A member of the RNA family "let-7 microRNA precursor family" from Cephus cinctus, 83 nucleotides long.
[Rfam]
RNA sequence: CCUGGGUGAGGUAGUAGGUUGUAUAGUAGGGAAUGAAAAUUCGCGAGUAUGAAGUCCACUGUACAAUUUGCUAACUCUCCCGG
Numbered sequence: 001c002c003u004g005g006g007u008g009a010g011g012u013a014g015u016a017g018g019u020u021g022u023a024u025a026g027u028a029g030g031g032a033a034u035g036a037a038a039a040u041u042c043g044c045g046a047g048u049a050u051g052a053a054g055u056c057c058a059c060u061g062u063a064c065a066a067u068u069u070g071c072u073a074a075c076u077c078u079c080c081c082g083g
Stems, first nucleotide, its partner, number of pairs: 001083002004080003008077003012073016029044001031042002048053001

Overview
The match comes from Rfam's covariance-model search (55 bits). This family represents the microRNAs (miRNA) let-7 and mir-98. let-7 was identified from a study of developmental timing in C. elegans, and was later shown to be part of a much larger class of non-coding RNAs termed miRNAs. The base pairs follow the family's consensus structure, which was predicted with RNAalifold. Lineage of the source: Eukaryota > Pancrustacea > Allotriocarida > Pterygota > Cephus. The family has 64 seed sequences and 8,694 matches in Rfam 15.1. Rfam links the family to the GO terms RISC complex and miRNA-mediated post-transcriptional gene silencing.